[Rfam]
RNA sequence: GCCGGCGUAGCUCAGUUGGUAGAGCAGCGCAUUCGUAAUGCGCGGGCCGAGGGUUCGAAUCCUUUCGCCGGCA
Numbered sequence: 001g002c003c004g005g006c007g008u009a010g011c012u013c014a015g016u017u018g019g020u021a022g023a024g025c026a027g028c029g030c031a032u033u034c035g036u037a038a039u040g041c042g043c044g045g046g047c048c049g050a051g052g053g054u055u056c057g058a059a060u061c062c063u064u065u066c067g068c069c070g071g072c073a
Stems, first nucleotide, its partner, number of pairs: 001072007010025004027043005049065005